[Rfam]
This 84-nucleotide RNA sequence from Bombyx mori belongs to the Rfam family "mir-2807 microRNA precursor family". Lineage of the source: Eukaryota > Hexapoda > Neoptera > Heteroneura > Bombyx. Rfam links the family to the GO terms RISC complex and miRNA-mediated post-transcriptional gene silencing. On this family, see Liu et al., BMC Genomics 2010: "MicroRNAs of Bombyx mori identified by Solexa sequencing".
RNA sequence: UUAACUUAAAUUUGUAUGGAAUUGGAAUUUUUGUCAACGUUUGCCUCCAGGGGCGCUGUUCCAACUGCAUACGAAUAUGAGCGA
Number, nucleotide and partner (000 for none) at each position: 001u000002u000003a000004a000005c000006u000007u000008a078009a000010a076011u075012u074013u073014g072015u071016a070017u000018g068019g000020a066021a000022u064023u063024g062025g061026a060027a059028u058029u000030u000031u000032u000033g000034u052035c051036a000037a000038c000039g047040u000041u000042u000043g000044c000045c000046u000047c039048c000049a000050g000051g035052g034053g000054c000055g000056c000057u000058g028059u027060u026061c025062c024063a023064a022065c000066u020067g000068c018069a000070u016071a015072c014073g013074a012075a011076u010077a000078u008079g000080a000081g000082c000083g000084a000